[Rfam]
RNA: Acido-Lenti-1 RNA
RNA sequence: CCCAGGGCUGCGCCCUGGGCUUUCGCAGCGCGGCCCUCCGGGCCU
Numbered sequence: 001c002c003c004a005g006g007g008c009u010g011c012g013c014c015c016u017g018g019g020c021u022u023u024c025g026c027a028g029c030g031c032g033g034c035c036c037u038c039c040g041g042g043c044c045u
Base pairs, nucleotide, nucleotide: 001019002018003017004016005015006014007013008012032044033043034042035041036040